[Rfam]
RNA sequence: AUGACCCCUAGAGUUCCCUUGACCACUUCAUUGGGUGAUGGACCGAUAAAUGAUCUUUUCCGAUCAAUUAUUUCUCCGAGAAAAAAGCUCCUACUGAAGUGUUUGGGGGAACUCCUGGUGUCAU
Numbered sequence: 001a002u003g004a005c006c007c008c009u010a011g012a013g014u015u016c017c018c019u020u021g022a023c024c025a026c027u028u029c030a031u032u033g034g035g036u037g038a039u040g041g042a043c044c045g046a047u048a049a050a051u052g053a054u055c056u057u058u059u060c061c062g063a064u065c066a067a068u069u070a071u072u073u074c075u076c077c078g079a080g081a082a083a084a085a086a087g088c089u090c091c092u093a094c095u096g097a098a099g100u101g102u103u104u105g106g107g108g109g110a111a112c113u114c115c116u117g118g119u120g121u122c123a124u
Stems, first nucleotide, its partner, number of pairs: 005120001007118002011114010022104001024101007032093004
RNA: mir-395 microRNA precursor family